[Rfam]
RNA: Repression of heat shock gene expression (ROSE) element
Organism: Afipia sp. Root123D2
RNA sequence: CCGGGUGCCCUUGGGGCCCGGAAGUGAGACGGGCGCCGGAGGUGUCCGGUGUCCGCUCGUACCCAACUUGCUCAGUGGAGGAUUUGGCUAUGAGAA
Numbered sequence: 001c002c003g004g005g006u007g008c009c010c011u012u013g014g015g016g017c018c019c020g021g022a023a024g025u026g027a028g029a030c031g032g033g034c035g036c037c038g039g040a041g042g043u044g045u046c047c048g049g050u051g052u053c054c055g056c057u058c059g060u061a062c063c064c065a066a067c068u069u070g071c072u073c074a075g076u077g078g079a080g081g082a083u084u085u086g087g088c089u090a091u092g093a094g095a096a
Stems, first nucleotide, its partner, number of pairs: 001021006008015002030055010056094006063087004068082002071080003
Dot-bracket structure: ((((((.((....))))))))........((((((((((......))))))))))((((((.((((.((.(((....))))).)))).))))))..